[Rfam]
The family of this 67-nucleotide RNA from Medicago truncatula is "MIR5272 microRNA precursor family". NCBI's taxonomy places the organism under Eukaryota, Spermatophyta, eudicotyledons, Fabaceae, Medicago. Gene Ontology terms of the family: miRNA-mediated post-transcriptional gene silencing and RISC complex. The base pairs follow the family's consensus structure, which was predicted with RNAalifold. The match comes from Rfam's covariance-model search (65 bits).

RNA sequence: UUGAAUGUGAAUUGAUUUAUGUUUGGAUACUAAAAGUGAUUCUUGCGGGUUGAUGUUGUUUGGAUAG
Numbered sequence: 001u002u003g004a005a006u007g008u009g010a011a012u013u014g015a016u017u018u019a020u021g022u023u024u025g026g027a028u029a030c031u032a033a034a035a036g037u038g039a040u041u042c043u044u045g046c047g048g049g050u051u052g053a054u055g056u057u058g059u060u061u062g063g064a065u066a067g
Base pairs, nucleotide, nucleotide: 011054012053013052014051015050016049017048018047021046022045025042026041027040028039030038